RNA sequence: AAAAAUAUAAAUUGGCACACUGUGUGCAUUGCUAUUACCAGCAAUUCACAUACAACGGUCCUGUCAACGGCGACAGGUCGUUUCCUGACCGAUCAGGACCUGGACAAAGGCGUCCUACCGCGCGAGCGGUGGGGCGCC
Dot-bracket structure: ...........((((((.......)))...........................(((((.((.((......)).))))))).(((((......)))))......))).(((((((.(((((....))))).)))))))
RNA: Pseudomonas sRNA P11
Organism: Halopseudomonas phragmitis